[Rfam]
transfer-messenger RNA: a 374-nucleotide sequence from Actinosynnema mirum.
Bacterial tmRNA, also known as 10Sa RNA or SsrA, is named for its dual tRNA and mRNA-like properties. Its role is to liberate the mRNA from a stalled ribosome. To accomplish this part of the tmRNA is used as a reading frame that ends in a translation stop signal. The broken mRNA is replaced in the ribosome by the tmRNA and translation of the tmRNA leads to addition of a proteolysis tag to the incomplete protein enabling recognition by a protease. Recently a number of permuted tmRNA genes have been found encoded in two parts. tmRNAs have been identified in eubacteria and some chloroplasts but are absent from archaeal and eukaryote nuclear genomes.
The base pairs follow the family's consensus structure, which is taken from published work.
Rfam links the family to the GO term RNA catabolic process.

RNA sequence: GGGGGUGAACGGUUUCGACUUUGUGCGUCGAUUCAAGGGAAGCGUGCCGGUGCAGGCGAGAGACCACCGCAAGCGUCAUCGCAAACCAAUAAGCGCCAAGUCUAACGACCAGCGCGCGUUCGCCCUCGCCGCCUGAGGCUAGGAGCAACGCUGUCGGCCCGGAGGAGCCUCCGCUCCGGUCGCCGGCAUCAGCUAGGAGGCUUCACCUCCGUUCCCGGUCACGGGGAGCGGUUGGGACACUCACAGUGACUGGGCCUGUCACGACGUCUUGUCCGCGUGAUCGUCGGGGCCGAGCAGAGGCAUAGCGGACUGCGCACGGAGAAGCCUUGAUGAGCCGGCAGAGGACCCGGGUUCGAUUCCCGGCACCUCCACUC
Number, nucleotide and partner (000 for none) at each position: 001g370002g369003g368004g367005g366006u365007g364008a000009a000010c000011g000012g000013u000014u000015u000016c000017g000018a000019c343020u342021u341022u340023g339024u338025g000026c000027g335028u334029c000030g000031a000032u000033u330034c329035a328036a327037g326038g325039g000040a000041a000042g000043c318044g317045u316046g315047c314048c069049g068050g067051u066052g065053c000054a000055g000056g082057c081058g080059a079060g000061a000062g000063a000064c000065c052066a051067c050068c049069g048070c000071a000072a000073g000074c000075g000076u000077c000078a000079u059080c058081g057082c056083a000084a000085a000086c000087c000088a000089a000090u000091a000092a000093g000094c000095g000096c000097c000098a000099a000100g000101u000102c000103u000104a000105a000106c000107g000108a000109c000110c000111a000112g000113c000114g000115c000116g000117c000118g000119u000120u000121c000122g000123c000124c143125c142126u141127c000128g139129c138130c137131g000132c000133c000134u000135g000136a000137g130138g129139c128140u000141a126142g125143g124144a000145g000146c000147a000148a000149c000150g000151c000152u188153g187154u186155c185156g184157g183158c000159c179160c178161g177162g176163a175164g174165g000166a000167g201168c200169c199170u198171c197172c196173g000174c164175u163176c162177c161178g160179g159180u000181c000182g000183c157184c156185g155186g154187c153188a152189u000190c000191a000192g000193c000194u000195a000196g172197g171198a170199g169200g168201c167202u000203u000204c000205a000206c234207c000208u000209c231210c230211g229212u228213u227214c226215c000216c000217g251218g250219u249220c248221a247222c246223g000224g000225g000226g214227a213228g212229c211230g210231g209232u000233u000234g206235g000236g000237a000238c000239a000240c000241u000242c000243a000244c000245a000246g222247u221248g220249a219250c218251u217252g000253g291254g290255c289256c288257u287258g000259u000260c000261a000262c000263g000264a000265c000266g282267u000268c000269u000270u000271g310272u309273c308274c307275g000276c000277g000278u304279g303280a000281u000282c266283g000284u000285c000286g000287g257288g256289g255290c254291c253292g000293a000294g000295c000296a000297g000298a000299g000300g000301c000302a000303u279304a278305g000306c000307g274308g273309a272310c271311u000312g000313c000314g047315c046316a045317c044318g043319g000320a000321g000322a000323a000324g000325c038326c037327u036328u035329g034330a033331u000332g000333a000334g028335c027336c000337g000338g024339c023340a022341g021342a020343g019344g000345a000346c000347c363348c362349g361350g360351g359352u000353u000354c000355g000356a000357u000358u000359c351360c350361c349362g348363g347364c007365a006366c005367c004368u003369c002370c001371a000372c000373u000374c000